[Rfam]
RNA sequence: UGACGAUAAUAGCAAACUUAUCGAAAGGUAAGGACGCAAAGCCAUGGGUCUAAAGAUAAUAAAUUAUUCAAUGAUAGCCAGGUUGCCGAA
Numbered sequence: 001u002g003a004c005g006a007u008a009a010u011a012g013c014a015a016a017c018u019u020a021u022c023g024a025a026a027g028g029u030a031a032g033g034a035c036g037c038a039a040a041g042c043c044a045u046g047g048g049u050c051u052a053a054a055g056a057u058a059a060u061a062a063a064u065u066a067u068u069c070a071a072u073g074a075u076a077g078c079c080a081g082g083u084u085g086c087c088g089a090a
Base pairs, nucleotide, nucleotide: 012037013036017032018031019030020029021028022027040084041083042082043081045080046079047078048075049074050073055069056068